[Rfam]
Shown here is a 150-nucleotide sequence from Yersinia aldovae, a member of the family "PepN 5' UTR thermometer".
RNA sequence: CUAUCUGAGUCUGGGGCCAAUAGGUUUGCAGCAAUGCUCUGGUCGCCGUAAUACCGGCCUUUAAUGACUAUUAAUACAGACCUGAUAAUCAUAUUCACUGAUGACGUCAAAAGGGUUCUUAUGACACAACAGCCGCAAGUCAAAUACCGU
Numbered sequence: 001c002u003a004u005c006u007g008a009g010u011c012u013g014g015g016g017c018c019a020a021u022a023g024g025u026u027u028g029c030a031g032c033a034a035u036g037c038u039c040u041g042g043u044c045g046c047c048g049u050a051a052u053a054c055c056g057g058c059c060u061u062u063a064a065u066g067a068c069u070a071u072u073a074a075u076a077c078a079g080a081c082c083u084g085a086u087a088a089u090c091a092u093a094u095u096c097a098c099u100g101a102u103g104a105c106g107u108c109a110a111a112a113g114g115g116u117u118c119u120u121a122u123g124a125c126a127c128a129a130c131a132g133c134c135g136c137a138a139g140u141c142a143a144a145u146a147c148c149g150u
Stems, first nucleotide, its partner, number of pairs: 004080004009075002013071001014060004023047003098132003102128002106125004113120002
Source information
Taxonomically the source falls in Yersinia aldovae (Bacteria, Pseudomonadota, Gammaproteobacteria, Yersinia).